A member of the RNA family "MIR480 microRNA precursor family" from Populus tomentosa, 131 nucleotides long. Pairs were carried over by alignment from the consensus structure, which was predicted with WAR. Rfam links the family to the GO terms miRNA-mediated post-transcriptional gene silencing and RISC complex. The organism belongs to Populus, within Eukaryota. For this family Rfam cites "Novel and mechanical stress-responsive MicroRNAs in Populus trichocarpa that are absent from Arabidopsis" (Lu et al., Plant Cell, 2005).

RNA sequence: UAAUUUGUUUGGGGCAGAUUUUCAUCUAGUUGUGACAGACUUAUAUCUGACUGUCUAGAAUUACGUGUUAUUGCAAGCCUUUUUGUUUAUCUAUAUCAAAAGGAACCAUGUUCACUACUUUAAAAUGGAUG
Numbered sequence: 001u002a003a004u005u006u007g008u009u010u011g012g013g014g015c016a017g018a019u020u021u022u023c024a025u026c027u028a029g030u031u032g033u034g035a036c037a038g039a040c041u042u043a044u045a046u047c048u049g050a051c052u053g054u055c056u057a058g059a060a061u062u063a064c065g066u067g068u069u070a071u072u073g074c075a076a077g078c079c080u081u082u083u084u085g086u087u088u089a090u091c092u093a094u095a096u097c098a099a100a101a102g103g104a105a106c107c108a109u110g111u112u113c114a115c116u117a118c119u120u121u122a123a124a125a126u127g128g129a130u131g
Stems, first nucleotide, its partner, number of pairs: 004129004008124002012120001014118001023110003027105001030102002